[Rfam]
Annotation:
A member of the RNA family "FMN riboswitch aptamer (RFN element)" from Propionibacterium cyclohexanicum, 133 nucleotides long. It scores 93 bits against the family's covariance model. The organism belongs to Propionibacterium, within Bacteria.
RNA sequence: CAACGUGCCCGGGGUCGGUGAGAAUCCGAACCGGCGGUGAUAGUCCGCGAACCCUCACCCAGUUCACUGGGGCAGGGCCGAUCCGGUGGAAUUCCGGUACCGACGGUCAAAGUCCGGAUGGGAGAGCACGUGG
Number, nucleotide and partner (000 for none) at each position: 001c000002a000003a131004c130005g129006u128007g127008c126009c000010c124011g000012g000013g000014g000015u000016c028017g027018g026019u000020g000021a000022g000023a000024a000025u000026c018027c017028g016029a000030a113031c112032c102033g101034g048035c047036g046037g045038u000039g000040a000041u000042a000043g100044u099045c037046c036047g035048c034049g000050a000051a000052c077053c076054c075055u074056c000057a000058c000059c000060c000061a000062g000063u000064u000065c000066a000067c000068u000069g000070g000071g000072g000073c000074a055075g054076g053077g052078c000079c000080g000081a000082u000083c097084c096085g095086g094087u000088g000089g000090a000091a000092u000093u000094c086095c085096g084097g083098u000099a044100c043101c033102g032103a000104c116105g115106g114107u000108c000109a000110a000111a000112g031113u030114c106115c105116g104117g000118a000119u000120g000121g000122g000123a000124g010125a000126g008127c007128a006129c005130g004131u003132g000133g000